[Rfam]
RNA sequence: UCACUUACCUGGACGGGUCAACUCGUAAUCAAGAAGACGAGUGUCCUAGGCUAGUGACUUCCAUUGCACUGAGGAAGGGUGCUUAGCUUAAGGUCUUCCCAAGUGGAAGAGCCUACGUCAUUAUUUGUGGCAGAGGGGUUUGCGUUCGCGCAGCCCCUA
Numbered sequence: 001u002c003a004c005u006u007a008c009c010u011g012g013a014c015g016g017g018u019c020a021a022c023u024c025g026u027a028a029u030c031a032a033g034a035a036g037a038c039g040a041g042u043g044u045c046c047u048a049g050g051c052u053a054g055u056g057a058c059u060u061c062c063a064u065u066g067c068a069c070u071g072a073g074g075a076a077g078g079g080u081g082c083u084u085a086g087c088u089u090a091a092g093g094u095c096u097u098c099c100c101a102a103g104u105g106g107a108a109g110a111g112c113c114u115a116c117g118u119c120a121u122u123a124u125u126u127g128u129g130g131c132a133g134a135g136g137g138g139u140u141u142g143c144g145u146u147c148g149c150g151c152a153g154c155c156c157c158u159a
Base pairs, nucleotide, nucleotide: 012119013118014117015116016046017045019043020042022041023040024039025038026037048089049088050087051086052085054082055081056080058078059077060076061074062073091114092113093112094110095109096108098106099105134158135157136156137155138154141152142151143150144149
RNA: U1 spliceosomal RNA